Description:
A member of the RNA family "Antisense RNA which regulates isiA expression" from Hyella patelloides, 178 nucleotides long. Lineage of the source: Bacteria > Cyanobacteriota > Cyanophyceae > Pleurocapsales > Hyella patelloides.
RNA sequence: GAUAACCAAAGAUAGUCAAAGGAUUCAAUGUUGGGUCGGUGACGACUCGUACAUCUUGAAUGUUGACAUCGUAUAGUCCUUCACCAAACAUAGCUCUAGCGACUAAAGCCAAUGCAGCUAUACCCAAAAAUAACAGAUGAUGACCGAGAAUAAUUCCUAACUGUUUGGGAUCGUUCCA
Numbered sequence: 001g002a003u004a005a006c007c008a009a010a011g012a013u014a015g016u017c018a019a020a021g022g023a024u025u026c027a028a029u030g031u032u033g034g035g036u037c038g039g040u041g042a043c044g045a046c047u048c049g050u051a052c053a054u055c056u057u058g059a060a061u062g063u064u065g066a067c068a069u070c071g072u073a074u075a076g077u078c079c080u081u082c083a084c085c086a087a088a089c090a091u092a093g094c095u096c097u098a099g100c101g102a103c104u105a106a107a108g109c110c111a112a113u114g115c116a117g118c119u120a121u122a123c124c125c126a127a128a129a130a131u132a133a134c135a136g137a138u139g140a141u142g143a144c145c146g147a148g149a150a151u152a153a154u155u156c157c158u159a160a161c162u163g164u165u166u167g168g169g170a171u172c173g174u175u176c177c178a
Stems, first nucleotide, its partner, number of pairs: 136175006144169002147166002
Source information: The base pairs follow the family's consensus structure, which was predicted with PFOLD.